Rfam assigns this 104-nucleotide RNA from Nostocoides sp. F2B08 to the family "mraW RNA". The source organism's lineage runs through Bacteria, Actinomycetota, Micrococcales, Intrasporangiaceae and Nostocoides. The match comes from Rfam's covariance-model search (57 bits). The family's consensus secondary structure is taken from published work.
[Rfam]
RNA sequence: UCGCUGACCUGCACCUCGGCCUCCAGCCGGAGACCGCCCCCGACACGCCUUCCCCCGUGCCGGGUCCGGACCGGAUGGGGACCAGGGUCCAGGUCAGAGCCGUA
Number, nucleotide and partner (000 for none) at each position: 001u000002c000003g000004c000005u000006g000007a000008c000009c000010u091011g090012c000013a088014c087015c086016u085017c000018g083019g082020c000021c080022u079023c078024c077025a076026g000027c074028c073029g072030g071031a000032g000033a000034c069035c068036g067037c000038c000039c064040c063041c062042g061043a000044c059045a058046c057047g000048c000049c000050u000051u000052c000053c000054c000055c000056c000057g046058u045059g044060c000061c042062g041063g040064g039065u000066c000067c036068g035069g034070a000071c030072c029073g028074g027075a000076u025077g024078g023079g022080g021081a000082c019083c018084a000085g016086g015087g014088u013089c000090c011091a010092g000093g000094u000095c000096a000097g000098a000099g000100c000101c000102g000103u000104a000